[Rfam]
RNA sequence: CGCUCAAUUUUAACUAUUUGUUAGCCAGUCCUUAUGUAUUGUUUAGAGGCGUAAUCCAGUCAUCUGGAUUUGAGUGGCUCCUAUCCACUCUGUUUGACGCCUCCCUGUUAGAACUUGAGCCGCAGGCAACUGUGGCUCAUUUUUU
Numbered sequence: 001c002g003c004u005c006a007a008u009u010u011u012a013a014c015u016a017u018u019u020g021u022u023a024g025c026c027a028g029u030c031c032u033u034a035u036g037u038a039u040u041g042u043u044u045a046g047a048g049g050c051g052u053a054a055u056c057c058a059g060u061c062a063u064c065u066g067g068a069u070u071u072g073a074g075u076g077g078c079u080c081c082u083a084u085c086c087a088c089u090c091u092g093u094u095u096g097a098c099g100c101c102u103c104c105c106u107g108u109u110a111g112a113a114c115u116u117g118a119g120c121c122g123c124a125g126g127c128a129a130c131u132g133u134g135g136c137u138c139a140u141u142u143u144u145u
Stems, first nucleotide, its partner, number of pairs: 001051004006015001017047002022045003026041004055068004072090006096109004116139010
Background: This 145-nucleotide RNA from a Parvibaculaceae bacterium belongs to the Rfam family "Alphaproteobacterial sRNA BjrC1505". Lineage of the source: Bacteria > Pseudomonadota > Alphaproteobacteria > Hyphomicrobiales > Parvibaculaceae.